[Rfam]
RNA sequence: GCGGUGUGCCGUGUCAGGUACUAGGUGACUCUGAGUAGCUUUCCGUCUCAGAGCCGCCUCGUGCCUCACAACGGCGCCGU
Numbered sequence: 001g002c003g004g005u006g007u008g009c010c011g012u013g014u015c016a017g018g019u020a021c022u023a024g025g026u027g028a029c030u031c032u033g034a035g036u037a038g039c040u041u042u043c044c045g046u047c048u049c050a051g052a053g054c055c056g057c058c059u060c061g062u063g064c065c066u067c068a069c070a071a072c073g074g075c076g077c078c079g080u
Base pairs, nucleotide, nucleotide: 001080002079003078004077005076007074010073011072012070013069016066017065018064019063020062021061024058025057026056027055029053030052031051032050033049034048035047
Annotation: A member of the RNA family "mir-306 microRNA precursor family" from Galleria mellonella, 80 nucleotides long. A search with the family's covariance model found it, with a score of 58 bits. Pairs were carried over by alignment from the consensus structure, which was predicted with RNAalifold. Gene Ontology terms of the family: RISC complex and miRNA-mediated post-transcriptional gene silencing. The literature on the family includes a 2003 paper in Dev Cell by Aravin et al., "The small RNA profile during Drosophila melanogaster development".